[Rfam]
RNA: Group II catalytic intron D1-D4-3
RNA sequence: UCGACCGUGAGGUCGAAUCUGAAGGAAGUCGGUGGCAAAUCUCCGGUCUGAGGAACACGAAUUUCAUAUAUGGCCAUCGUACGUUGGGAGAGGCUGCAUAACAAGUCAAAACCUUUACUGCCGAAGGCGUACGAGAGUAAAUGGAGUAGAUAGAUGGAGAGGAAGAUGGCGCU
Numbered sequence: 001u002c003g004a005c006c007g008u009g010a011g012g013u014c015g016a017a018u019c020u021g022a023a024g025g026a027a028g029u030c031g032g033u034g035g036c037a038a039a040u041c042u043c044c045g046g047u048c049u050g051a052g053g054a055a056c057a058c059g060a061a062u063u064u065c066a067u068a069u070a071u072g073g074c075c076a077u078c079g080u081a082c083g084u085u086g087g088g089a090g091a092g093g094c095u096g097c098a099u100a101a102c103a104a105g106u107c108a109a110a111a112c113c114u115u116u117a118c119u120g121c122c123g124a125a126g127g128c129g130u131a132c133g134a135g136a137g138u139a140a141a142u143g144g145a146g147u148a149g150a151u152a153g154a155u156g157g158a159g160a161g162g163a164a165g166a167u168g169g170c171g172c173u
Stems, first nucleotide, its partner, number of pairs: 001016006028173001030171002036165001040160006046151005062146006073138002077134007086114003092107004